Shown here is a 120-nucleotide RNA sequence from Aureimonas fodinaquatilis, a member of the family "TPP riboswitch aptamer (THI element)". Gene Ontology term of the family: thiamine pyrophosphate binding. Pairs were carried over by alignment from the consensus structure, which is taken from published work. The match comes from Rfam's covariance-model search (64 bits).

[Rfam]
RNA sequence: CAGGUGUCCAAGGGGAGUUCCGGGUAAGGAACUGAGAGGCCGAUUGCCACACAAGGCGCGCGGCGACCCUAAGAACCUGAUCCAGUUGACACUGGCGUAGGGAUGGAGUGAGCCGCACUU
Numbered sequence: 001c002a003g004g005u006g007u008c009c010a011a012g013g014g015g016a017g018u019u020c021c022g023g024g025u026a027a028g029g030a031a032c033u034g035a036g037a038g039g040c041c042g043a044u045u046g047c048c049a050c051a052c053a054a055g056g057c058g059c060g061c062g063g064c065g066a067c068c069c070u071a072a073g074a075a076c077c078u079g080a081u082c083c084a085g086u087u088g089a090c091a092c093u094g095g096c097g098u099a100g101g102g103a104u105g106g107a108g109u110g111a112g113c114c115g116c117a118c119u120u
Base pairs, nucleotide, nucleotide: 007107008106009105010104011070012069013068014067017032018031019030020029021028039064040063041062042061076101077100078099079098082095083094084093085092